[Rfam]
RNA sequence: AAGCAACAUUGUGGCAGAUGAUCAAAACACUCUGACACAAUUUGCGCUUGCUAUAGCAAGAAAGUCUAACCUACUCCGGUGUUCUCUCCUCGGUAGGGCAAGCCAUUAUAUAGACUUAAACAGU
Numbered sequence: 001a002a003g004c005a006a007c008a009u010u011g012u013g014g015c016a017g018a019u020g021a022u023c024a025a026a027a028c029a030c031u032c033u034g035a036c037a038c039a040a041u042u043u044g045c046g047c048u049u050g051c052u053a054u055a056g057c058a059a060g061a062a063a064g065u066c067u068a069a070c071c072u073a074c075u076c077c078g079g080u081g082u083u084c085u086c087u088c089c090u091c092g093g094u095a096g097g098g099c100a101a102g103c104c105a106u107u108a109u110a111u112a113g114a115c116u117u118a119a120a121c122a123g124u
Base pairs, nucleotide, nucleotide: 009044010039011038012037013036015034016033017032018031062117063116064115065114066113067112068111072110073109078104079103080102085098086097087096
Shown here is a 124-nucleotide sequence from Trichechus manatus, a member of the family "Small nucleolar RNA SNORA28". A search with the family's covariance model found it, with a score of 108 bits. For this family Rfam cites "RNomics: an experimental approach that identifies 201 candidates for novel, small, non-messenger RNAs in mouse" (Huttenhofer et al., EMBO J, 2001). About the family: ACA28 is a member of the H/ACA class of snoRNA that guide the sites of modification of uridines to pseudouridines. The family is grouped with related families in Rfam's "SNORA28 clan". NCBI's taxonomy places the organism under Eukaryota, Deuterostomia, Sarcopterygii, Mammalia, Trichechus manatus.